[Rfam]
RNA: permuted transfer-messenger RNA
RNA sequence: ACGCGGAUUACCGCAGCUGAGGCGGCUUGGGGACGGGGGUUCGAUUCCCCCCGGCUCCAUCUAAGCGCUGAAUGGAUGCAUGGGGGGACUUGAAAACCCGCCAGGCGUCCGCAUAUCGAUCAACAAGGCCAGCGCGGAUUCGCAAGAACACCUACAAUGGCCAGACUUUCCUGGGGCCGACCUGGUUUCGACGUGGGUGCGGAUUCGGGACAGGGCAUGUCGAGGGCCAGGCACCUCGUAAAUCCAUCUGGAAAAAAACUAACUGCAAACGACGAAUCGUUCGCACUCGCCGCUUAA
Numbered sequence: 001a002c003g004c005g006g007a008u009u010a011c012c013g014c015a016g017c018u019g020a021g022g023c024g025g026c027u028u029g030g031g032g033a034c035g036g037g038g039g040u041u042c043g044a045u046u047c048c049c050c051c052c053g054g055c056u057c058c059a060u061c062u063a064a065g066c067g068c069u070g071a072a073u074g075g076a077u078g079c080a081u082g083g084g085g086g087g088a089c090u091u092g093a094a095a096a097c098c099c100g101c102c103a104g105g106c107g108u109c110c111g112c113a114u115a116u117c118g119a120u121c122a123a124c125a126a127g128g129c130c131a132g133c134g135c136g137g138a139u140u141c142g143c144a145a146g147a148a149c150a151c152c153u154a155c156a157a158u159g160g161c162c163a164g165a166c167u168u169u170c171c172u173g174g175g176g177c178c179g180a181c182c183u184g185g186u187u188u189c190g191a192c193g194u195g196g197g198u199g200c201g202g203a204u205u206c207g208g209g210a211c212a213g214g215g216c217a218u219g220u221c222g223a224g225g226g227c228c229a230g231g232c233a234c235c236u237c238g239u240a241a242a243u244c245c246a247u248c249u250g251g252a253a254a255a256a257a258a259c260u261a262a263c264u265g266c267a268a269a270c271g272a273c274g275a276a277u278c279g280u281u282c283g284c285a286c287u288c289g290c291c292g293c294u295u296a297a
Base pairs, nucleotide, nucleotide: 001220002219003218005216014208016206026197027196028195029194031192035051036050037049038048039047052179053178054177055176056175057174058173221238222237223236224235